[Rfam]
RNA sequence: GAAAAAGCAGGGGUCUGUUGCCUUUGUGAAUGGACCUCUCGUAAACAUCAGGGAUAUCAGUCUCAUUGUUAUUGGGUGAACCUAUGUUUGUUGUUUGUGACUGAAGGUUCAGUAAAUGAUGGAACAUUU
Numbered sequence: 001g002a003a004a005a006a007g008c009a010g011g012g013g014u015c016u017g018u019u020g021c022c023u024u025u026g027u028g029a030a031u032g033g034a035c036c037u038c039u040c041g042u043a044a045a046c047a048u049c050a051g052g053g054a055u056a057u058c059a060g061u062c063u064c065a066u067u068g069u070u071a072u073u074g075g076g077u078g079a080a081c082c083u084a085u086g087u088u089u090g091u092u093g094u095u096u097g098u099g100a101c102u103g104a105a106g107g108u109u110c111a112g113u114a115a116a117u118g119a120u121g122g123a124a125c126a127u128u129u
Base pairs, nucleotide, nucleotide: 005048007046011037012036014034015033016032017031064121065120066119067118068117069116070115077111078110079109080108081107082106083105